[Rfam]
RNA sequence: ACUGUCUGAAAAUCGCCUUUGGCCUUUUCAAUGGCUUUGGGUGAGAUAUUGGUGCCCACAGCAAAGGGAAUGUUUAGCUUAUUGCCCUCAAGCCUGAGGAGUGUGCAAUAAAACCCAUGUUCCUAUACUC
Numbered sequence: 001a002c003u004g005u006c007u008g009a010a011a012a013u014c015g016c017c018u019u020u021g022g023c024c025u026u027u028u029c030a031a032u033g034g035c036u037u038u039g040g041g042u043g044a045g046a047u048a049u050u051g052g053u054g055c056c057c058a059c060a061g062c063a064a065a066g067g068g069a070a071u072g073u074u075u076a077g078c079u080u081a082u083u084g085c086c087c088u089c090a091a092g093c094c095u096g097a098g099g100a101g102u103g104u105g106c107a108a109u110a111a112a113a114c115c116c117a118u119g120u121u122c123c124u125a126u127a128c129u130c
Base pairs, nucleotide, nucleotide: 006052007051008050009049010047013044014043015042016041021036022035023034024033067123069121070120071119072118073117079111080110081109082108083107087101088100089099

Shown here is a 130-nucleotide RNA sequence from Anolis carolinensis, a member of the family "Small nucleolar RNA ACA64".
Pairs were carried over by alignment from the consensus structure, which was predicted with WAR.
Rfam links the family to the GO terms RNA processing and nucleolus.
The source organism's lineage runs through Eukaryota, Bilateria, Euteleostomi, Sauropsida and Anolis.
It is annotated as an H/ACA-box small nucleolar RNA.
The family has 30 seed sequences and 9,537 matches in Rfam 15.1.